[Rfam]
RNA sequence: GAGCCUGUGAUGAAGAUAUAACCGUGCCAGAGAUGAGUAUCUUAUGAAUUCGUCGAUGACGGCGCAAUCCUCUAAGAAGUUCUGAGCUC
Numbered sequence: 001g002a003g004c005c006u007g008u009g010a011u012g013a014a015g016a017u018a019u020a021a022c023c024g025u026g027c028c029a030g031a032g033a034u035g036a037g038u039a040u041c042u043u044a045u046g047a048a049u050u051c052g053u054c055g056a057u058g059a060c061g062g063c064g065c066a067a068u069c070c071u072c073u074a075a076g077a078a079g080u081u082c083u084g085a086g087c088u089c
Stems, first nucleotide, its partner, number of pairs: 001089004
The family of this 89-nucleotide RNA from Lupinus albus is "Small nucleolar RNA U61". A reference for the family is Brown et al. (2003), "Plant snoRNA database", Nucleic Acids Res. Its family is annotated with RNA processing and nucleolus in the Gene Ontology. A search with the family's covariance model found it, with a score of 68 bits. The base pairs follow the family's consensus structure, which was predicted with WAR.